The record is a 130-nucleotide RNA from Molossus molossus, which matches "Small nucleolar RNA SNORA51" in Rfam. The base pairs follow the family's consensus structure, which was predicted with PFOLD. ACA51 is a member of the H/ACA class of snoRNA that guide the sites of modification of uridines to pseudouridines. It scores 109 bits against the family's covariance model. Rfam links the family to the GO terms nucleolus and RNA processing.

RNA sequence: GUGCUCCGGGUGCUUACCACAGGCUGUGUUCUCACUCUCACUGUACAGAAAGGAGGCAGAGUAAACCCACCCUAUGUACACCUCAGCCCGGGCCCUGUGCCUGCUCUGUAUUGUGAAUGUGGGGACGUGG
Dot-bracket structure: ...(((.............(((...(.((....)).)...))).........)))..............((.(((........(((..(((((.....)))))..)))........))).))........